[Rfam]
Rfam assigns this 77-nucleotide RNA from Flavobacterium pallidum to the family "Flavo-1 RNA". The family's RNA type in Rfam is small RNA. The family's consensus secondary structure is taken from published work. It scores 50 bits against the family's covariance model. The source organism's lineage runs through Bacteria, Pseudomonadati, Bacteroidota, Flavobacteriia and Flavobacterium.
RNA sequence: AUUGCGCCAGGGAUGUAAGCGGCAUCCUUUUAUAACCUGAAAGGUUAUGAAAGAUAUAGCGGACAGCCCGGCCCGCA
Number, nucleotide and partner (000 for none) at each position: 001a000002u000003u000004g000005c000006g000007c000008c000009a000010g069011g068012g067013a000014u065015g064016u000017a000018a000019g060020c059021g000022g000023c000024a055025u054026c053027c000028u000029u000030u050031u049032a048033u047034a046035a045036c044037c043038u000039g000040a000041a000042a000043g037044g036045u035046u034047a033048u032049g031050a030051a000052a000053g026054a025055u024056a000057u000058a000059g020060c019061g000062g000063a000064c015065a014066g000067c012068c011069c010070g000071g000072c000073c000074c000075g000076c000077a000